[Rfam]
RNA sequence: AUGGAGGUGAUGAAUUUUUCCCCAGAUGAUUCGACGCUGAAAUAACUGAGCGCUACUUAUUUUCUCCUUUUGUGGAGAAAAUCCAAGCCAAAAUUCUGAUCCAU
Numbered sequence: 001a002u003g004g005a006g007g008u009g010a011u012g013a014a015u016u017u018u019u020c021c022c023c024a025g026a027u028g029a030u031u032c033g034a035c036g037c038u039g040a041a042a043u044a045a046c047u048g049a050g051c052g053c054u055a056c057u058u059a060u061u062u063u064c065u066c067c068u069u070u071u072g073u074g075g076a077g078a079a080a081a082u083c084c085a086a087g088c089c090a091a092a093a094u095u096c097u098g099a100u101c102c103a104u
Base pairs, nucleotide, nucleotide: 001104002103003102004101005100
Source information:
Small nucleolar RNA Z103: a 104-nucleotide RNA sequence from Salvia splendens. By type it is a C/D-box small nucleolar RNA. Rfam links the family to the GO terms nucleolus and RNA processing. Taxonomically the source falls in core Calosphace (Eukaryota, Tracheophyta, Lamiales, Lamiaceae).